RNA sequence: UGCAGCCCUGUCAAAUUCAGUCCCUGCCUCCUCCAUGGUGGGGACUGGCCAACCGGCUGCCACAGCAAACUGGGGUCCACGAGCUCCCCAUCCCCUUCCCGUGGGGACACUGGGGUUGACAUCCGACCACCAACACUG
Numbered sequence: 001u002g003c004a005g006c007c008c009u010g011u012c013a014a015a016u017u018c019a020g021u022c023c024c025u026g027c028c029u030c031c032u033c034c035a036u037g038g039u040g041g042g043g044a045c046u047g048g049c050c051a052a053c054c055g056g057c058u059g060c061c062a063c064a065g066c067a068a069a070c071u072g073g074g075g076u077c078c079a080c081g082a083g084c085u086c087c088c089c090a091u092c093c094c095c096u097u098c099c100c101g102u103g104g105g106g107a108c109a110c111u112g113g114g115g116u117u118g119a120c121a122u123c124c125g126a127c128c129a130c131c132a133a134c135a136c137u138g
Stems, first nucleotide, its partner, number of pairs: 002060004018047011072130001074128004085115002088113002